[Rfam]
RNA sequence: GUUUGCCCAUGGUAUCUAAUGCCCAGAUCUUGUUUUUGUCAUCUGGGCAUUUCGUUUUUAGGGCAUAAAUUGAUAACAGAUCUUGCGACACAGUUAGCUUCAUCUUUUGAUAAUAAGCUCUCUGUUACUUUGUAACUGUUUACAUAU
Numbered sequence: 001g002u003u004u005g006c007c008c009a010u011g012g013u014a015u016c017u018a019a020u021g022c023c024c025a026g027a028u029c030u031u032g033u034u035u036u037u038g039u040c041a042u043c044u045g046g047g048c049a050u051u052u053c054g055u056u057u058u059u060a061g062g063g064c065a066u067a068a069a070u071u072g073a074u075a076a077c078a079g080a081u082c083u084u085g086c087g088a089c090a091c092a093g094u095u096a097g098c099u100u101c102a103u104c105u106u107u108u109g110a111u112a113a114u115a116a117g118c119u120c121u122c123u124g125u126u127a128c129u130u131u132g133u134a135a136c137u138g139u140u141u142a143c144a145u146a147u
Stems, first nucleotide, its partner, number of pairs: 004065005018051011032039001075140005090125004096119004